[Rfam]
RNA: PyrR binding site
RNA sequence: AAGACCUUUAAACAAGUACAGAGAUGCUUGCAAGGUCGCAUUUAAAGGAUACGUGUACCUUUUAUACUACACGUCUACCUCUUUGCGACCAGCAAAGAGGUUUUUUUUAU
Numbered sequence: 001a002a003g004a005c006c007u008u009u010a011a012a013c014a015a016g017u018a019c020a021g022a023g024a025u026g027c028u029u030g031c032a033a034g035g036u037c038g039c040a041u042u043u044a045a046a047g048g049a050u051a052c053g054u055g056u057a058c059c060u061u062u063u064a065u066a067c068u069a070c071a072c073g074u075c076u077a078c079c080u081c082u083u084u085g086c087g088a089c090c091a092g093c094a095a096a097g098a099g100g101u102u103u104u105u106u107u108u109a110u
Base pairs, nucleotide, nucleotide: 003037004036005035006034007033008032013030014029015028016027017026018025041066043064044063045062046061047060048059050057051056073105077101078100079099080098081097082096083095084094085093086092